RNA: TPP riboswitch aptamer (THI element)
Organism: Marinitenerispora sediminis
Nucleotides: 113
Stems, first nucleotide, its partner, number of pairs: 006101003010097001011063004017034005041057007069094003075088004
Number, partner (000 for none) and nucleotide at each position: 001000c002000g003000a004000c005000g006101u007100c008099c009000c010097c011063g012062c013061g014060g015000g016000a017034g018033c019032c020031g021030g022000g023000u024000a025000g026000g027000g028000a029000c030021c031020c032019g033018g034017c035000u036000g037000a038000g039000a040000g041057g042056g043055a044054g045053g046052c047051u048000g049000c050000c051047a052046g053045c054044c055043u056042c057041c058000g059000a060014c061013c062012g063011c064000a065000c066000g067000a068000a069094c070093c071092u072000g073000a074000u075088c076087c077086g078085g079000g080000u081000c082000a083000u084000a085078c086077c087076g088075g089000c090000g091000a092071a093070g094069g095000g096000a097010g098000u099008g100007g101006a102000g103000c104000u105000g106000g107000c108000a109000u110000c111000g112000u113000g